The family of this 110-nucleotide RNA sequence from Trifolium medium is "Small nucleolar RNA Z278". A reference for the family is Chen et al. (2003), "The high diversity of snoRNAs in plants: identification and comparative study of 120 snoRNA genes from Oryza sativa", Nucleic Acids Res. Rfam classes the family as a C/D-box small nucleolar RNA. Rfam's curators write: snoZ278 is a C/D box small nucleolar RNA. Its methylation guide targets have not been reported. The organism belongs to Trifolium, within Eukaryota. A search with the family's covariance model found it, with a score of 47 bits.
[Rfam]
RNA sequence: UGUGAUUAUAUGAUAUCCGAUUUUUUUGAGGUGUUUUGGAGUAAAGAUCCUGUUUACAGGAAGAACCUACUUGGUGAAGGGACAUUCAUAUGACAGAAAUGGACUGAAUA
Numbered sequence: 001u002g003u004g005a006u007u008a009u010a011u012g013a014u015a016u017c018c019g020a021u022u023u024u025u026u027u028g029a030g031g032u033g034u035u036u037u038g039g040a041g042u043a044a045a046g047a048u049c050c051u052g053u054u055u056a057c058a059g060g061a062a063g064a065a066c067c068u069a070c071u072u073g074g075u076g077a078a079g080g081g082a083c084a085u086u087c088a089u090a091u092g093a094c095a096g097a098a099a100u101g102g103a104c105u106g107a108a109u110a
Base pairs, nucleotide, nucleotide: 001110002109003108048061049060050059051058052057